RNA sequence: CCGCCCGUGGUUCGAAAACCUCCCACAUUAAAAAACUAAGGAAAC
Numbered sequence: 001c002c003g004c005c006c007g008u009g010g011u012u013c014g015a016a017a018a019c020c021u022c023c024c025a026c027a028u029u030a031a032a033a034a035a036c037u038a039a040g041g042a043a044a045c
Base pairs, nucleotide, nucleotide: 007026008025009024010023016037

Rfam assigns this 45-nucleotide sequence from Neisseria meningitidis to the family "PreQ1 (pre queuosine) riboswitch aptamer". NCBI's taxonomy places the organism under Bacteria, Pseudomonadota, Neisseriales, Neisseria meningitidis, Neisseria meningitidis serogroup B. About the family: This family is a bacterial riboswitch that binds to the metabolite preQ1, an intermediate in the biosynthesis of the modified nucleoside queuosine from GTP. One example of this riboswitch is located in the leader of the Bacillus subtilis ykvJKLM (queCDEF) operon which encodes four genes necessary for queuosine production. PreQ1 binding to the riboswitch aptamer is thought to induce premature transcription termination within the leader to down-regulate expression of these genes. Rfam links the family to the GO term queuosine biosynthetic process. A reference for the family is Flemmich et al. (2021), "A natural riboswitch scaffold with self-methylation activity", Nat Commun.